Archaeal large subunit ribosomal RNA: a 444-nucleotide part of an RNA from Candidatus Methanohalarchaeum thermophilum. On this family, see Cannone et al., BMC Bioinformatics 2002: "The comparative RNA web (CRW) site: an online database of comparative sequence and structure information for ribosomal, intron, and other RNAs". The match comes from Rfam's covariance-model search (2865 bits). The family's consensus secondary structure is taken from published work.
RNA sequence: CCUCCCGAAACACCUCGAAGGGUCGUCUAGUUCGAGGACGCCGGCAAGGUAGAGCACUGAUUGGGGGAAUGGGUCGAGAGACCCUGAACCCCUGUCAAACUCCGAACUUGUUGGCUCUGUGGACAACUGGAAUCAGGUUAUGGCGCAUAAGGCGCCGUGCCGAGAAGGGAACAACCCGGACCAAGGUUAAGGUCCCAAAAUACCGGCUAAGUGCUAAGGCAGAAGGGUGUCCCGGACCAAAGACAGCUGGGAGGUGGGCCUAGAAGCAGCCACCCUUUAAAGAAAGCGUAACAGCUCACCAGUUGAGGUCUGGGGCCCCGAAAAUGGAAGGGGCUAAGCCGGUUACCGAUACCUUGGAACUCCGAGAGGAGAUUUGGUAGGGAGGCGUCCCGUAUGGGUAGAAGCUGGGCCUUGAGGUCCUGUGGACCGUAUGGGAACGAGAAU
Numbered sequence: 001c002c003u004c005c006c007g008a009a010a011c012a013c014c015u016c017g018a019a020g021g022g023u024c025g026u027c028u029a030g031u032u033c034g035a036g037g038a039c040g041c042c043g044g045c046a047a048g049g050u051a052g053a054g055c056a057c058u059g060a061u062u063g064g065g066g067g068a069a070u071g072g073g074u075c076g077a078g079a080g081a082c083c084c085u086g087a088a089c090c091c092c093u094g095u096c097a098a099a100c101u102c103c104g105a106a107c108u109u110g111u112u113g114g115c116u117c118u119g120u121g122g123a124c125a126a127c128u129g130g131a132a133u134c135a136g137g138u139u140a141u142g143g144c145g146c147a148u149a150a151g152g153c154g155c156c157g158u159g160c161c162g163a164g165a166a167g168g169g170a171a172c173a174a175c176c177c178g179g180a181c182c183a184a185g186g187u188u189a190a191g192g193u194c195c196c197a198a199a200a201u202a203c204c205g206g207c208u209a210a211g212u213g214c215u216a217a218g219g220c221a222g223a224a225g226g227g228u229g230u231c232c233c234g235g236a237c238c239a240a241a242g243a244c245a246g247c248u249g250g251g252a253g254g255u256g257g258g259c260c261u262a263g264a265a266g267c268a269g270c271c272a273c274c275c276u277u278u279a280a281a282g283a284a285a286g287c288g289u290a291a292c293a294g295c296u297c298a299c300c301a302g303u304u305g306a307g308g309u310c311u312g313g314g315g316c317c318c319c320g321a322a323a324a325u326g327g328a329a330g331g332g333g334c335u336a337a338g339c340c341g342g343u344u345a346c347c348g349a350u351a352c353c354u355u356g357g358a359a360c361u362c363c364g365a366g367a368g369g370a371g372a373u374u375u376g377g378u379a380g381g382g383a384g385g386c387g388u389c390c391c392g393u394a395u396g397g398g399u400a401g402a403a404g405c406u407g408g409g410c411c412u413u414g415a416g417g418u419c420c421u422g423u424g425g426a427c428c429g430u431a432u433g434g435g436a437a438c439g440a441g442a443a444u
Base pairs, nucleotide, nucleotide: 001385002384003383004382005381006380012023013022014021015020026132027130028129029128030127031126032125036118037117038116040115041114042113043112044111045110046109047108052103053101054100059096060095061094063092064091065090066089071084072083073082074081075080136161137160139159140158141157142156143155144154145153167176168175181357182356183355184354185353186352187351191347192346193345200344202343203342204341205340206339207338225319226318227317229316230315231314232313233312234311235310236309237308238307246303247302248301249300250299252276253275254274257271258270259269277281282297286295287294358375359374360371361370362369363368386439388436389435390434391433392432393431394430395429396428397427404423405422407420408419409418410417411416
NCBI's taxonomy places the organism under Archaea, Methanobacteriati, Methanonatronarchaeia, Methanonatronarchaeaceae, Candidatus Methanohalarchaeum.